[Rfam]
RNA sequence: UGUUGAACAAAAGCGCCUGAACUAUUUUUUUGUUCGGAAAUAUAAAAAAUAGUUGACGAGGAGGAGGAGUAUCGAGGAUUUCGGCGGAUACCUCCCGGUUGCAUACCUCCAACCGACACGUUGUUAUUCGAAAAUAAAGAGGCGACUCUUUACACAAGAAUAAGAACAUGGGGAUAA
Dot-bracket structure: ...................((((((((.(...............).))))))))........(((((....((((.....))))......)))))((((((........))))))....(((.(((........(((((((....)))))))........))).)))..........
Numbered sequence: 001u002g003u004u005g006a007a008c009a010a011a012a013g014c015g016c017c018u019g020a021a022c023u024a025u026u027u028u029u030u031u032g033u034u035c036g037g038a039a040a041u042a043u044a045a046a047a048a049a050u051a052g053u054u055g056a057c058g059a060g061g062a063g064g065a066g067g068a069g070u071a072u073c074g075a076g077g078a079u080u081u082c083g084g085c086g087g088a089u090a091c092c093u094c095c096c097g098g099u100u101g102c103a104u105a106c107c108u109c110c111a112a113c114c115g116a117c118a119c120g121u122u123g124u125u126a127u128u129c130g131a132a133a134a135u136a137a138a139g140a141g142g143c144g145a146c147u148c149u150u151u152a153c154a155c156a157a158g159a160a161u162a163a164g165a166a167c168a169u170g171g172g173g174a175u176a177a
Stems, first nucleotide, its partner, number of pairs: 020054008029045001063095005072084004096115006120167003124163003135152007
Notes: This 177-nucleotide RNA sequence from Natronobacillus azotifigens belongs to the Rfam family "glmS glucosamine-6-phosphate activated ribozyme aptamer". Taxonomically the source falls in Natronobacillus (Bacteria, Bacillati, Bacilli, Caryophanales). It scores 113 bits against the family's covariance model.